Rfam assigns this 108-nucleotide RNA from Rhizocola hellebori to the family "Guanidine-I riboswitch aptamer".
[Rfam]
RNA sequence: GUGAGGCGCGCCUAGGGUUCCGCCGCCCAUUCGGGCGGGCUGGUCCGAGAGGUGCAGGUGCCCGGGCACGGCCAGGGCGCUCCACGGCGGGACAAAAGCCCGGGAGAC
Numbered sequence: 001g002u003g004a005g006g007c008g009c010g011c012c013u014a015g016g017g018u019u020c021c022g023c024c025g026c027c028c029a030u031u032c033g034g035g036c037g038g039g040c041u042g043g044u045c046c047g048a049g050a051g052g053u054g055c056a057g058g059u060g061c062c063c064g065g066g067c068a069c070g071g072c073c074a075g076g077g078c079g080c081u082c083c084a085c086g087g088c089g090g091g092a093c094a095a096a097a098g099c100c101c102g103g104g105a106g107a108c
Stems, first nucleotide, its partner, number of pairs: 008055005015046002020043002022040001023038006057081007083103001085106001089101003

A reference for the family is Barrick et al. (2004), "New RNA motifs suggest an expanded scope for riboswitches in bacterial genetic control", Proc Natl Acad Sci U S A.